The family of this 61-nucleotide RNA sequence from Eucalyptus grandis is "Plastid-psbN 5UTR RNA". From the family's description: Plastid psbN is a non-coding RNA (ncRNA) recognised in plastids. It was reported as a conserved 11 stem-loop in the prime untranslated region (5UTR) of psbN genes. It has been reported that the motif is retained in a subset of mature transcripts in barley, which can suggests a possible role in transcript alternative 5 prime processing. The base pairs follow the family's consensus structure, which was predicted with LocARNA. NCBI's taxonomy places the organism under Eukaryota, Magnoliopsida, rosids, malvids, Eucalyptus. It is annotated as a cis-regulatory element. A reference for the family is Richter et al. (2023), "Retrograde signaling in plants: A critical review focusing on the GUN pathway and beyond", Plant Commun.
[Rfam]
RNA sequence: UAGGACACCCAUAAAAUGAGUAAUUCCCCAUCCGGGAGCUACUUUACCAUAUUCUAAAUUC
Numbered sequence: 001u002a003g004g005a006c007a008c009c010c011a012u013a014a015a016a017u018g019a020g021u022a023a024u025u026c027c028c029c030a031u032c033c034g035g036g037a038g039c040u041a042c043u044u045u046a047c048c049a050u051a052u053u054c055u056a057a058a059u060u061c
Stems, first nucleotide, its partner, number of pairs: 018044005024038004